[Rfam]
RNA sequence: GACCUAACCCUUUGAGAAACCCUCAGAGAUAUGGUCAAAAUCCCACCACAGGUGUAAAAACCUCCUAGUCAAGGAGUACCUGUGGUGGGUCCUAUCGGGAAACUGGUAGUGGGUAGCAAAGCUACC
Numbered sequence: 001g002a003c004c005u006a007a008c009c010c011u012u013u014g015a016g017a018a019a020c021c022c023u024c025a026g027a028g029a030u031a032u033g034g035u036c037a038a039a040a041u042c043c044c045a046c047c048a049c050a051g052g053u054g055u056a057a058a059a060a061c062c063u064c065c066u067a068g069u070c071a072a073g074g075a076g077u078a079c080c081u082g083u084g085g086u087g088g089g090u091c092c093u094a095u096c097g098g099g100a101a102a103c104u105g106g107u108a109g110u111g112g113g114u115a116g117c118a119a120a121g122c123u124a125c126c
Stems, first nucleotide, its partner, number of pairs: 001036004010028006042089011061076001092109007112126005

The family of this 126-nucleotide sequence is "LOOT RNA". The family's RNA type in Rfam is small RNA.